[Rfam]
RNA sequence: UGAUGACCGUUCCUCUUGCUGUCAAAAGUCUCAGACAGUGAGAUUUUGUGUCAUCAAAUAUUAAUGGUGGACUUUCUUCACUCACUGUGUCUUUGGACGGGUUUGGCUGUCCGUUGGCACUGUUGAACUUUGCGGGGUCACACAUUC
Numbered sequence: 001u002g003a004u005g006a007c008c009g010u011u012c013c014u015c016u017u018g019c020u021g022u023c024a025a026a027a028g029u030c031u032c033a034g035a036c037a038g039u040g041a042g043a044u045u046u047u048g049u050g051u052c053a054u055c056a057a058a059u060a061u062u063a064a065u066g067g068u069g070g071a072c073u074u075u076c077u078u079c080a081c082u083c084a085c086u087g088u089g090u091c092u093u094u095g096g097a098c099g100g101g102u103u104u105g106g107c108u109g110u111c112c113g114u115u116g117g118c119a120c121u122g123u124u125g126a127a128c129u130u131u132g133c134g135g136g137g138u139c140a141c142a143c144a145u146u147c
Base pairs, nucleotide, nucleotide: 001056002055003054004053005052006051007050014043015042016041017040018039020037021036022035023034070139071138072137073136074135075134082126083125084124086122087120088119089118090117091116095112096111097110098109099108

Small nucleolar RNA SNORA79: a 147-nucleotide RNA from Phrynocephalus forsythii. The family's consensus secondary structure was predicted with RNAalifold. Lineage of the source: Eukaryota > Eumetazoa > Unidentata > Agamidae > Phrynocephalus. Rfam's curators write: ACA65 (SNORA79) is a member of the H/ACA class of snoRNAs that guide the sites of modification of uridines to pseudouridines. This snoRNA was identified by computational screening and its expression in mouse experimentally verified by Northern blot and primer extension analysis.